[Rfam]
Background: Shown here is an 87-nucleotide RNA from Cnephaeus nilssonii, a member of the family "mir-9195 microRNA precursor family". Pairs were carried over by alignment from the consensus structure, which was predicted with RNAalifold. It scores 93 bits against the family's covariance model. The source organism's lineage runs through Eukaryota, Teleostomi, Dipnotetrapodomorpha, Amniota and Cnephaeus.
RNA sequence: AGAGGCCCUCCGCGGCUGGGGUAAAAGGCUUGCCUUGUCGCCACGGCGAUGAAGCAAGCAUUUUGCCAGGCCACUCACACUGCCUUC
Dot-bracket structure: ...(((.....(.((((..(((((((.((((((...(((((....)))))...)))))).))))))).)))).).......)))...